[Rfam]
RNA sequence: GAGCAAUGAAGAGAACCGCGCUCUUGUGAUGGUAGGGUUCCAUCGCUCUCACCGAUUAAACGAUGAGAAACUGCGCGCUGAGCUU
Numbered sequence: 001g002a003g004c005a006a007u008g009a010a011g012a013g014a015a016c017c018g019c020g021c022u023c024u025u026g027u028g029a030u031g032g033u034a035g036g037g038u039u040c041c042a043u044c045g046c047u048c049u050c051a052c053c054g055a056u057u058a059a060a061c062g063a064u065g066a067g068a069a070a071c072u073g074c075g076c077g078c079u080g081a082g083c084u085u
Stems, first nucleotide, its partner, number of pairs: 001085004
small nucleolar RNA snoR114: an 85-nucleotide sequence from Gossypium mustelinum.
For this family Rfam cites "Mining small RNA sequencing data: a new approach to identify small nucleolar RNAs in Arabidopsis" (Chen and Wu, Nucleic Acids Res, 2009).
Pairs were carried over by alignment from the consensus structure, which was predicted with RNAalifold.
It is annotated as a C/D-box small nucleolar RNA.
Its family is annotated with RNA processing and nucleolus in the Gene Ontology.
Lineage of the source: Eukaryota > Euphyllophyta > Magnoliopsida > Pentapetalae > Gossypium.